mir-7386 microRNA precursor family: a 55-nucleotide RNA sequence from Monodelphis domestica. The base pairs follow the family's consensus structure, which was predicted with RNAalifold.
[Rfam]
RNA sequence: UCAGAUAAGGUAUUUAAUUUUGUGAAUAUAUCCAAAAUAGACACCUUAUCUUUGG
Numbered sequence: 001u002c003a004g005a006u007a008a009g010g011u012a013u014u015u016a017a018u019u020u021u022g023u024g025a026a027u028a029u030a031u032c033c034a035a036a037a038u039a040g041a042c043a044c045c046u047u048a049u050c051u052u053u054g055g
Stems, first nucleotide, its partner, number of pairs: 003051008017038006024032001
Gene Ontology terms of the family: RISC complex and miRNA-mediated post-transcriptional gene silencing.